[Rfam]
Nucleotides: 221
Stems, first nucleotide, its partner, number of pairs: 001107007008044005014036002019028003047099004056092004060086001062084002065079001152212006168199006177186003
Number, partner (000 for none) and nucleotide at each position: 001107c002106c003105a004104a005103c006102g007101u008044g009043g010042a011041c012040a013000u014036c015035c016000u017000g018000u019028g020027a021026g022000g023000u024000u025000g026021c027020u028019c029000u030000c031000a032000u033000u034000u035015g036014g037000c038000u039000c040012u041011g042010u043009c044008c045000g046000u047099g048098c049097a050096g051000c052000a053000u054000a055000a056092g057091g058090g059089a060086g061000c062084g063083c064000a065079g066000c067000a068000c069000u070000u071000c072000a073000g074000u075000g076000c077000a078000a079065u080000g081000a082000c083063g084062u085000a086060u087000a088000a089059u090058c091057c092056c093000a094000u095000u096050c097049u098048g099047c100000g101007a102006c103005g104004u105003u106002g107001g108000a109000a110000a111000g112000c113000a114000a115000u116000c117000a118000g119000g120000u121000c122000c123000c124000c125000a126000g127000c128000c129000c130000u131000u132000u133000g134000g135000c136000u137000g138000g139000u140000g141000u142000g143000g144000a145000c146000u147000g148000g149000g150000c151000a152212c153211u154210g155209c156208a157207u158000a159000u160000u161000c162000c163000u164000a165000c166000a167000u168199c169198u170197u171196u172195c173194c174000a175000g176000a177186g178185c179184c180000a181000u182000c183000u184179g185178g186177c187000a188000a189000u190000u191000a192000c193000u194173g195172g196171g197170g198169a199168g200000a201000a202000a203000a204000a205000c206000c207157a208156u209155g210154c211153a212152g213000g214000g215000c216000a217000c218000a219000u220000c221000u

Rfam assigns this 221-nucleotide RNA from Erpetoichthys calabaricus to the family "Small nucleolar RNA SNORA73 family". On this family, see Enright et al., RNA 1996: "5'ETS rRNA processing facilitated by four small RNAs: U14, E3, U17, and U3". NCBI's taxonomy places the organism under Eukaryota, Chordata, Vertebrata, Gnathostomata, Erpetoichthys. U17 (SNORA73A and SNORA73B) also known as E1 belongs to the H/ACA class of small nucleolar RNAs (snoRNAs). Vertebrate U17 is intron-encoded and ranges in length from 200-230 nucleotides, longer than most snoRNAs. A search with the family's covariance model found it, with a score of 190 bits. Its family is annotated with RNA processing and nucleolus in the Gene Ontology.